This 82-nucleotide RNA sequence from Triticum aestivum belongs to the Rfam family "small nucleolar RNA snoR114".
Its family is annotated with nucleolus and RNA processing in the Gene Ontology.
Pairs were carried over by alignment from the consensus structure, which was predicted with RNAalifold.
The family has 24 seed sequences and 1,645 matches in Rfam 15.1.
Rfam classes the family as a C/D-box small nucleolar RNA.
Taxonomically the source falls in Triticum (Eukaryota, Spermatophyta, Poales, Poaceae).
[Rfam]
RNA sequence: AAGUGGUGAUGAAAAAUGCUCUAUGGCAACUUGGGUCGUCACAUGCAUCUGAUCUGCAGAUGACACGAGCAAAUCUGAACUU
Numbered sequence: 001a002a003g004u005g006g007u008g009a010u011g012a013a014a015a016a017u018g019c020u021c022u023a024u025g026g027c028a029a030c031u032u033g034g035g036u037c038g039u040c041a042c043a044u045g046c047a048u049c050u051g052a053u054c055u056g057c058a059g060a061u062g063a064c065a066c067g068a069g070c071a072a073a074u075c076u077g078a079a080c081u082u
Base pairs, nucleotide, nucleotide: 001082002081003080004079